A member of the RNA family "U12 minor spliceosomal RNA" from Leptobrachium leishanense, 144 nucleotides long.
The base pairs follow the family's consensus structure.
RNA sequence: AUGCCUUAAACUAAUGAGUAAGGGAAAUAACAAGCUGUGAUGAUAUCUGGUUCCUCAUGUGAGAAGAAUUUUUGUUUGGGUACAGGUUGUUCCUCAAAGGACUUGUGUACUUGCAUGGGACCUCUAGGUGCAGUGAUCUGCCUG
Numbered sequence: 001a002u003g004c005c006u007u008a009a010a011c012u013a014a015u016g017a018g019u020a021a022g023g024g025a026a027a028u029a030a031c032a033a034g035c036u037g038u039g040a041u042g043a044u045a046u047c048u049g050g051u052u053c054c055u056c057a058u059g060u061g062a063g064a065a066g067a068a069u070u071u072u073u074g075u076u077u078g079g080g081u082a083c084a085g086g087u088u089g090u091u092c093c094u095c096a097a098a099g100g101a102c103u104u105g106u107g108u109a110c111u112u113g114c115a116u117g118g119g120a121c122c123u124c125u126a127g128g129u130g131c132a133g134u135g136a137u138c139u140g141c142c143u144g
Stems, first nucleotide, its partner, number of pairs: 004023005033052005039046001054063003077144005084139007093128002096125001098123003102119005
The organism belongs to Leptobrachium, within Eukaryota. It scores 85 bits against the family's covariance model.